[Rfam]
RNA sequence: GUUAUCCGUCGAGUUUCGGCGGAGCCGAAACAUCGCUUAUUAGACAUGUGCGCUUUUCGCGCACUAAUUCAACAGUUUCCAAAAUUCAUAUUUUGUUCAACUGUUGAAUUUUGAG
Number, nucleotide and partner (000 for none) at each position: 001g000002u000003u000004a000005u000006c000007c000008g000009u000010c000011g034012a033013g031014u030015u029016u028017c027018g026019g025020c024021g000022g000023a000024g020025c019026c018027g017028a016029a015030a014031c013032a000033u012034c011035g000036c000037u000038u000039a000040u000041u000042a000043g000044a000045c000046a000047u000048g064049u063050g062051c061052g060053c059054u000055u000056u000057u000058c000059g053060c052061g051062c050063a049064c048065u000066a000067a109068u108069u107070c106071a105072a104073c103074a102075g101076u100077u099078u000079c000080c095081a094082a093083a092084a091085u090086u000087c000088a000089u000090a085091u084092u083093u082094u081095g080096u000097u000098c000099a077100a076101c075102u074103g073104u072105u071106g070107a069108a068109u067110u000111u000112u000113g000114a000115g000
TD-1 RNA: a 115-nucleotide RNA sequence from Treponema vincentii. Clan: TD (Treponema denticola) motifs. By type it is a cis-regulatory element.